The record is a 126-nucleotide RNA sequence from Lactococcus termiticola, which matches "PyrR binding site" in Rfam. NCBI's taxonomy places the organism under Bacteria, Bacillota, Bacilli, Streptococcaceae, Lactococcus. Rfam 15.1 lists 1,498 matches to the family in 930 species.
[Rfam]
RNA sequence: AAAACCUUUAAGAAUGUCCAGAGAGGCAGGCAAGGUCGGAAAAGUAAAUAGCAUUAUAUUAGGGGUUACCCUAUUUUCUGAUAUACCUGUAUACUCUGACAUUCUGAGUAUGCAGGUUUUUUGUAU
Numbered sequence: 001a002a003a004a005c006c007u008u009u010a011a012g013a014a015u016g017u018c019c020a021g022a023g024a025g026g027c028a029g030g031c032a033a034g035g036u037c038g039g040a041a042a043a044g045u046a047a048a049u050a051g052c053a054u055u056a057u058a059u060u061a062g063g064g065g066u067u068a069c070c071c072u073a074u075u076u077u078c079u080g081a082u083a084u085a086c087c088u089g090u091a092u093a094c095u096c097u098g099a100c101a102u103u104c105u106g107a108g109u110a111u112g113c114a115g116g117u118u119u120u121u122u123g124u125a126u
Base pairs, nucleotide, nucleotide: 004036005035006034007033008032015028016027017026018025044078046076047075048074049073050072051071054068056066057065081121083119085117086116087115088114089113090112091111092110093109094108095107096106